[Rfam]
RNA sequence: CCUGGGGGUGCACUUUGCUUACGUGGAUACAAAGUGCGUUUACGAGGACGGGCUUUGUUGCCACGUAGGCAAAGCGCGCCCCCGAGG
Numbered sequence: 001c002c003u004g005g006g007g008g009u010g011c012a013c014u015u016u017g018c019u020u021a022c023g024u025g026g027a028u029a030c031a032a033a034g035u036g037c038g039u040u041u042a043c044g045a046g047g048a049c050g051g052g053c054u055u056u057g058u059u060g061c062c063a064c065g066u067a068g069g070c071a072a073a074g075c076g077c078g079c080c081c082c083c084g085a086g087g
Base pairs, nucleotide, nucleotide: 001086003084004083005082006081007080008079009078010077011076013074014073015072016071017070018069019068020067021066023064024063025062026061029058030057031056032055033054034053035052037050038049040047041046
Shown here is an 87-nucleotide RNA sequence from Gossypium aridum, a member of the family "MIR7486 microRNA precursor family". NCBI's taxonomy places the organism under Eukaryota, Streptophytina, Magnoliopsida, eudicotyledons, Gossypium. It scores 73 bits against the family's covariance model. The family has 9 seed sequences and 10,132 matches in Rfam 15.1. Pairs were carried over by alignment from the consensus structure, which was predicted with RNAalifold.